[Rfam]
RNA sequence: UGCGGGCAGGCGCCGGGAAGUCUCCGAGUUGUCUUCGCGACAGCAGCGUCCAUUGCGGCGUGCAUCAGGAGCCGGGGGCCCGCGCCUUU
Number, nucleotide and partner (000 for none) at each position: 001u084002g083003c082004g081005g080006g079007c078008a000009g000010g000011c076012g000013c075014c074015g073016g072017g000018a000019a000020g000021u000022c071023u070024c069025c068026g000027a000028g044029u043030u042031g041032u040033c039034u000035u000036c000037g000038c000039g033040a032041c031042a030043g029044c028045a000046g000047c060048g059049u058050c057051c000052a000053u000054u000055g000056c000057g050058g049059c048060g047061u000062g000063c000064a000065u000066c000067a000068g025069g024070a023071g022072c016073c015074g014075g013076g011077g000078g007079c006080c005081c004082g003083c002084g001085c000086c000087u000088u000089u000
DUF3800-VII RNA: an 89-nucleotide sequence. Rfam's curators put it in the seed alignment.